Overview:
The record is a 72-nucleotide RNA sequence from Alligator sinensis, which matches "Mammalian CPEB3 ribozyme" in Rfam. Taxonomically the source falls in Alligator (Eukaryota, Euteleostomi, Sauria, Archelosauria). The base pairs follow the family's consensus structure, which is taken from published work.

[Rfam]
RNA sequence: CUGGAGUUCAAGGCCAGGGCAGAAGUACUCUUGGCACAGCUGUCAGAUUCCAAAAAAUCUGCAAAUUCUGCU
Number, nucleotide and partner (000 for none) at each position: 001c000002u000003g000004g000005a000006g000007u000008u000009c000010a000011a000012g000013g040014c039015c000016a000017g000018g072019g071020c070021a069022g068023a067024a066025g037026u036027a000028c000029u000030c000031u000032u000033g000034g000035c000036a026037c025038a000039g014040c013041u000042g000043u000044c061045a060046g059047a058048u057049u056050c000051c000052a000053a000054a000055a000056a049057a048058u047059c046060u045061g044062c000063a000064a000065a000066u024067u023068c022069u021070g020071c019072u018